[Rfam]
The family of this 59-nucleotide RNA from Cocos nucifera is "microRNA mir-251 microRNA precursor family". The source organism's lineage runs through Eukaryota, Tracheophyta, commelinids, Arecaceae and Cocos. A search with the family's covariance model found it, with a score of 45 bits.
RNA sequence: UUAAGUAGUGUGCCAUUCUUUUCAUUUAAUAAAUGAAAAGAAUGGCACACUACUUAAAU
Numbered sequence: 001u002u003a004a005g006u007a008g009u010g011u012g013c014c015a016u017u018c019u020u021u022u023c024a025u026u027u028a029a030u031a032a033a034u035g036a037a038a039a040g041a042a043u044g045g046c047a048c049a050c051u052a053c054u055u056a057a058a059u
Stems, first nucleotide, its partner, number of pairs: 002056012015043010